[Rfam]
RNA sequence: AUAUCUCUAGGAUGUUUGCCAGCGGGUCAGUCCCCUGAGCCGAUAUUGAAUAUAAAAAAAUAUGGUGUUCUUAACUCGUGAGCAUGCUUGGUUCGCCAGGAAGCCUAAAGGUUAUGACGCUAUAUUCACCUUGAACCAAGGGUUCAAGGGCCAAAGCUCGCAGCGGCAUCUUGGAGACCCC
Number, nucleotide and partner (000 for none) at each position: 001a000002u000003a000004u177005c176006u175007c174008u173009a172010g171011g170012a169013u168014g167015u166016u000017u165018g164019c163020c000021a000022g000023c000024g000025g000026g000027u000028c000029a000030g000031u000032c150033c149034c148035c000036u146037g145038a144039g143040c142041c141042g000043a000044u000045a000046u000047u000048g000049a000050a000051u000052a000053u000054a000055a000056a000057a000058a000059a126060a125061u000062a123063u122064g121065g120066u119067g118068u000069u117070c116071u000072u114073a113074a112075c111076u110077c000078g000079u000080g000081a000082g104083c103084a000085u000086g000087c100088u099089u098090g097091g096092u000093u000094c000095g000096c091097c090098a089099g088100g087101a000102a000103g083104c082105c000106u000107a000108a000109a000110g076111g075112u074113u073114a072115u000116g070117a069118c067119g066120c065121u064122a063123u062124a000125u060126u059127c000128a000129c000130c000131u000132u000133g000134a000135a000136c000137c000138a000139a000140g000141g041142g040143u039144u038145c037146a036147a000148g034149g033150g032151c000152c000153a000154a000155a000156g000157c000158u000159c000160g000161c000162a000163g019164c018165g017166g015167c014168a013169u012170c011171u010172u009173g008174g007175a006176g005177a004178c000179c000180c000181c000
6S / SsrS RNA: a 181-nucleotide RNA sequence from Candidatus Williamhamiltonella defendens. The organism belongs to Candidatus Williamhamiltonella, within Bacteria. The sequence is in the family's curated seed alignment. It is annotated as a non-coding RNA gene.